[Rfam]
RNA sequence: GGUUUAAUUACCCAAAUUUAAGGUAACUGAGUGUUUCGGACCAGAGCUUCGGCUAUUGUGGCUUGAAGCAAAAUUUUGGGACGUCCUGCAAUUCUGUGGGACAAC
Numbered sequence: 001g002g003u004u005u006a007a008u009u010a011c012c013c014a015a016a017u018u019u020a021a022g023g024u025a026a027c028u029g030a031g032u033g034u035u036u037c038g039g040a041c042c043a044g045a046g047c048u049u050c051g052g053c054u055a056u057u058g059u060g061g062c063u064u065g066a067a068g069c070a071a072a073a074u075u076u077u078g079g080g081a082c083g084u085c086c087u088g089c090a091a092u093u094c095u096g097u098g099g100g101a102c103a104a105c
Stems, first nucleotide, its partner, number of pairs: 003031004008026005034068004039062001041060001083102007